[Rfam]
RNA sequence: ACAACAAUUCAAUAACUCACUCAAACAAGACUUUUCGUGGUUCAUCCAUCAACACUACAAUCAUCAUGUCUCCCUGCUCUUGCAACUGCUGCUCCGGCAACUGCGGCUCCUGCUCCUGUUCCAGCUGCACCGUAAGUCUCCCGCAUCUUAUU
Numbered sequence: 001a002c003a004a005c006a007a008u009u010c011a012a013u014a015a016c017u018c019a020c021u022c023a024a025a026c027a028a029g030a031c032u033u034u035u036c037g038u039g040g041u042u043c044a045u046c047c048a049u050c051a052a053c054a055c056u057a058c059a060a061u062c063a064u065c066a067u068g069u070c071u072c073c074c075u076g077c078u079c080u081u082g083c084a085a086c087u088g089c090u091g092c093u094c095c096g097g098c099a100a101c102u103g104c105g106g107c108u109c110c111u112g113c114u115c116c117u118g119u120u121c122c123a124g125c126u127g128c129a130c131c132g133u134a135a136g137u138c139u140c141c142c143g144c145a146u147c148u149u150a151u152u
Stems, first nucleotide, its partner, number of pairs: 075099004082092003103128003112119002
Dot-bracket structure: ..........................................................................((((...(((.....)))...))))...(((......((....))......)))........................
This 152-nucleotide RNA from Penicillium decumbens belongs to the Rfam family "A. fumigatus sRNA Afu_254". It is annotated as a small RNA. Lineage of the source: Eukaryota > Ascomycota > saccharomyceta > Aspergillaceae > Penicillium. It scores 78 bits against the family's covariance model.